[Rfam]
RNA sequence: GGUCACGAGUGCCAGCAAUGUCUUGACCAGACGCCUGCCCCGGCUUGCUGGACGGCAACCCUCCACCGCGGCGGGGUGCCCCGGGUGAAGACCUGGCCUCCACCAACCGGUAGAGGCAAGCGCGGGUC
Numbered sequence: 001g002g003u004c005a006c007g008a009g010u011g012c013c014a015g016c017a018a019u020g021u022c023u024u025g026a027c028c029a030g031a032c033g034c035c036u037g038c039c040c041c042g043g044c045u046u047g048c049u050g051g052a053c054g055g056c057a058a059c060c061c062u063c064c065a066c067c068g069c070g071g072c073g074g075g076g077u078g079c080c081c082c083g084g085g086u087g088a089a090g091a092c093c094u095g096g097c098c099u100c101c102a103c104c105a106a107c108c109g110g111u112a113g114a115g116g117c118a119a120g121c122g123c124g125g126g127u128c
Base pairs, nucleotide, nucleotide: 001093002092003091004090009053012051013050014049015048016047017046018045054080055079056078059076060075061074063071064070096117097116098115099114100113102111103110104109